[Rfam]
RNA sequence: CCAUCUCCUAGAGUUCCCCUAAACGCUUCAGUAGGAUAAAGUUUCCUUACCUAAGAGUCUUAAAAUAGCCCUAACUAGUGAAGUGUUUAGGGGAGCUCCAGGGAACAC
Numbered sequence: 001c002c003a004u005c006u007c008c009u010a011g012a013g014u015u016c017c018c019c020u021a022a023a024c025g026c027u028u029c030a031g032u033a034g035g036a037u038a039a040a041g042u043u044u045c046c047u048u049a050c051c052u053a054a055g056a057g058u059c060u061u062a063a064a065a066u067a068g069c070c071c072u073a074a075c076u077a078g079u080g081a082a083g084u085g086u087u088u089a090g091g092g093g094a095g096c097u098c099c100a101g102g103g104a105a106c107a108c
Base pairs, nucleotide, nucleotide: 006103007102008101009100011098012097013096014095015094016093017092018091019090020089021088022087023086024085025084026083027082028081029080030079032077033076034075
Rfam assigns this 108-nucleotide sequence from Gossypium gossypioides to the family "mir-395 microRNA precursor family". Rfam links the family to the GO terms RISC complex and miRNA-mediated post-transcriptional gene silencing. A search with the family's covariance model found it, with a score of 58 bits.